[Rfam]
RNA: mir-29 microRNA precursor family
RNA sequence: GGGAGACUGGCUUUAUUUGGUGCAUGGAGUACACUUUCAUCCUCUAGCACCAUAUGAAAUCAGUUUUCC
Number, nucleotide and partner (000 for none) at each position: 001g069002g068003g067004a066005g064006a000007c063008u062009g061010g060011c000012u058013u057014u056015a055016u000017u000018u052019g051020g050021u049022g048023c000024a000025u046026g045027g044028a043029g000030u000031a000032c000033a000034c000035u000036u000037u000038c000039a000040u000041c000042c000043u028044c027045u026046a025047g000048c022049a021050c020051c019052a018053u000054a000055u015056g014057a013058a012059a000060u010061c009062a008063g007064u005065u000066u004067u003068c002069c001